[Rfam]
RNA sequence: UGGUCGGGCUGAUUCCAAAUCCACAUUCUUGGCAGCCCGAUAACAAAAAAGGAGGGUAAAACCAAACUCCGGGAGACUCCCGGUGCGGCAUUGUGGAGACAUGCCGUAAUGCGUUCGCCAAGCCCGGCGUUCGCGAGAAUGUGCGCGCGGAGGCGGCACAGUCAGGGUCAGUCAGUAUGGCA
Numbered sequence: 001u002g003g004u005c006g007g008g009c010u011g012a013u014u015c016c017a018a019a020u021c022c023a024c025a026u027u028c029u030u031g032g033c034a035g036c037c038c039g040a041u042a043a044c045a046a047a048a049a050a051g052g053a054g055g056g057u058a059a060a061a062c063c064a065a066a067c068u069c070c071g072g073g074a075g076a077c078u079c080c081c082g083g084u085g086c087g088g089c090a091u092u093g094u095g096g097a098g099a100c101a102u103g104c105c106g107u108a109a110u111g112c113g114u115u116c117g118c119c120a121a122g123c124c125c126g127g128c129g130u131u132c133g134c135g136a137g138a139a140u141g142u143g144c145g146c147g148c149g150g151a152g153g154c155g156g157c158a159c160a161g162u163c164a165g166g167g168u169c170a171g172u173c174a175g176u177a178u179g180g181c182a
Stems, first nucleotide, its partner, number of pairs: 006038006015032004069083004075169005084108008093100002111134003116129004137163002140160005146155003
RNA: malK-I RNA